RNA sequence: AAAGUAGCCAGUAAUUUGUUGUUGCAAUAGCUGGAACUUAAAGCCAACUA
Numbered sequence: 001a002a003a004g005u006a007g008c009c010a011g012u013a014a015u016u017u018g019u020u021g022u023u024g025c026a027a028u029a030g031c032u033g034g035a036a037c038u039u040a041a042a043g044c045c046a047a048c049u050a
Stems, first nucleotide, its partner, number of pairs: 001039002008034002011032001012029002018048004
RNA: Exoribonuclease-resistant RNA (xrRNA) plant-infecting virus (class 3)